The record is a 150-nucleotide RNA from Tenuibacillus multivorans, which matches "FMN riboswitch aptamer (RFN element)" in Rfam.
[Rfam]
RNA sequence: CUGAUUCUUCGGGGCAGGGUGAAAAUCCCGACCGGCGGUGAUGAAUGUUAGGGUGCUCCCGUAACAUUCUUAGUCCGCGACCCGCAUCGAGCGGUUGAUCUAGUGAGAAUCUAGAGCCGACAGUGAAAGUCUGGAUGGGAGAAGGAUCAG
Numbered sequence: 001c002u003g004a005u006u007c008u009u010c011g012g013g014g015c016a017g018g019g020u021g022a023a024a025a026u027c028c029c030g031a032c033c034g035g036c037g038g039u040g041a042u043g044a045a046u047g048u049u050a051g052g053g054u055g056c057u058c059c060c061g062u063a064a065c066a067u068u069c070u071u072a073g074u075c076c077g078c079g080a081c082c083c084g085c086a087u088c089g090a091g092c093g094g095u096u097g098a099u100c101u102a103g104u105g106a107g108a109a110u111c112u113a114g115a116g117c118c119g120a121c122a123g124u125g126a127a128a129g130u131c132u133g134g135a136u137g138g139g140a141g142a143a144g145g146a147u148c149a150g
Stems, first nucleotide, its partner, number of pairs: 003148008017029003031130002033119002035078004073117002082094002099115005121133003
The base pairs follow the family's consensus structure, which is taken from published work. The match comes from Rfam's covariance-model search (109 bits).